[Rfam]
RNA sequence: AUUAAAUGAUGAAUUUUUAUGUCAUGCACCAAUCUGAAAGGUUUUGCUGAAUACUCACCUAUUUUUUAUCUGAUAAU
Numbered sequence: 001a002u003u004a005a006a007u008g009a010u011g012a013a014u015u016u017u018u019a020u021g022u023c024a025u026g027c028a029c030c031a032a033u034c035u036g037a038a039a040g041g042u043u044u045u046g047c048u049g050a051a052u053a054c055u056c057a058c059c060u061a062u063u064u065u066u067u068a069u070c071u072g073a074u075a076a077u
Base pairs, nucleotide, nucleotide: 001077002076003075004074